Vault RNA: a 143-nucleotide sequence from Mus musculus. The source organism's lineage runs through Eukaryota, Metazoa, Chordata, Eutheria and Mus. It is one of the family's seed sequences. By type it is a non-coding RNA gene.
RNA sequence: GGGCCAGCUUUAGCUCAGCGGUUACUUCGACAGUGGUUCAGUUCAUUACCAGCUAUUCGUAGCAGGUUCGAACAACACAACCAACCACUUACCUAACCCGUGAGUGUUUGGUUCGAGACCCGCGGGCGCUCCCUGGCCCUUUU
Dot-bracket structure: .((((((.....((((.((((....(((((..................................................................................)))))..)))))))).....)))))).....
Pairs were carried over by alignment from the consensus structure, which is taken from published work.